[Rfam]
RNA sequence: UGUGAAGGGCGCAUGGUGGAUGCCUUGGUAAUAGGAGCCGAUGAAGGACGUGGGAAUCUGCGAUAAGCCUGGUGGAGUUGAUAACCGAGCGUUGAUGCCAGGAUGUCCGAAUGGGGUAACCCCGCGCAUCGUGGUGGUGCGUGACCGCUGGUUGAAUGUAUAGGCCAGUUGGAGGGAACGUGGGGAAGUGAAACAUCUCAGUACCUGCAGGAAGAGAAAAUAAUAAUGAUUCUGCUAGUAGUGGCGAGCGAACGUGGAUGAGGCUAAACCUGGUGCGUGUGAUACACGGUAGUGGUUGCGUGCUGGGGGUUGUGGGAUGCGCUGUGCUGGUUCUACCGGGCUGGCGAGUGAUGGUUGCGUGUAUGCGAAGUAGUUUGGAUGCUACACCGUAGUGGGUGAGAGUCCCGUAGUGGUAACGCGUUGGCCGGGCUUUGGUGUUUUCCCGAGUAGUACGGGGUUCGUGGAGUCCCGUGUGAAUCUGCCAGGACCACCUGGUAAGUCUAAAUACUUCCUAUUGACCGAUAGUGGAUCAGUACCGUGAGGGAAUGGUGAAAAGUACCCCGGGAGGGGAGUGAAAGAGUACCUGAAACCAUGUGCUUA
Numbered sequence: 001u002g003u004g005a006a007g008g009g010c011g012c013a014u015g016g017u018g019g020a021u022g023c024c025u026u027g028g029u030a031a032u033a034g035g036a037g038c039c040g041a042u043g044a045a046g047g048a049c050g051u052g053g054g055a056a057u058c059u060g061c062g063a064u065a066a067g068c069c070u071g072g073u074g075g076a077g078u079u080g081a082u083a084a085c086c087g088a089g090c091g092u093u094g095a096u097g098c099c100a101g102g103a104u105g106u107c108c109g110a111a112u113g114g115g116g117u118a119a120c121c122c123c124g125c126g127c128a129u130c131g132u133g134g135u136g137g138u139g140c141g142u143g144a145c146c147g148c149u150g151g152u153u154g155a156a157u158g159u160a161u162a163g164g165c166c167a168g169u170u171g172g173a174g175g176g177a178a179c180g181u182g183g184g185g186a187a188g189u190g191a192a193a194c195a196u197c198u199c200a201g202u203a204c205c206u207g208c209a210g211g212a213a214g215a216g217a218a219a220a221u222a223a224u225a226a227u228g229a230u231u232c233u234g235c236u237a238g239u240a241g242u243g244g245c246g247a248g249c250g251a252a253c254g255u256g257g258a259u260g261a262g263g264c265u266a267a268a269c270c271u272g273g274u275g276c277g278u279g280u281g282a283u284a285c286a287c288g289g290u291a292g293u294g295g296u297u298g299c300g301u302g303c304u305g306g307g308g309g310u311u312g313u314g315g316g317a318u319g320c321g322c323u324g325u326g327c328u329g330g331u332u333c334u335a336c337c338g339g340g341c342u343g344g345c346g347a348g349u350g351a352u353g354g355u356u357g358c359g360u361g362u363a364u365g366c367g368a369a370g371u372a373g374u375u376u377g378g379a380u381g382c383u384a385c386a387c388c389g390u391a392g393u394g395g396g397u398g399a400g401a402g403u404c405c406c407g408u409a410g411u412g413g414u415a416a417c418g419c420g421u422u423g424g425c426c427g428g429g430c431u432u433u434g435g436u437g438u439u440u441u442c443c444c445g446a447g448u449a450g451u452a453c454g455g456g457g458u459u460c461g462u463g464g465a466g467u468c469c470c471g472u473g474u475g476a477a478u479c480u481g482c483c484a485g486g487a488c489c490a491c492c493u494g495g496u497a498a499g500u501c502u503a504a505a506u507a508c509u510u511c512c513u514a515u516u517g518a519c520c521g522a523u524a525g526u527g528g529a530u531c532a533g534u535a536c537c538g539u540g541a542g543g544g545a546a547u548g549g550u551g552a553a554a555a556g557u558a559c560c561c562c563g564g565g566a567g568g569g570g571a572g573u574g575a576a577a578g579a580g581u582a583c584c585u586g587a588a589a590c591c592a593u594g595u596g597c598u599u600a
Stems, first nucleotide, its partner, number of pairs: 007599010022584001023549002027520002029517007036509002038175002046108003049062003068102007077090003113122003123143007145172002147169007179210001180208005190197002220227002230505001231258005241249002261502004269307011314444003319438005352427001353425001355423001357421006364412003370385005388392001394406003450474009481496005536543002559570004

Rfam assigns this 600-nucleotide part of an RNA to the family "Bacterial large subunit ribosomal RNA".
The match comes from Rfam's covariance-model search (2645 bits).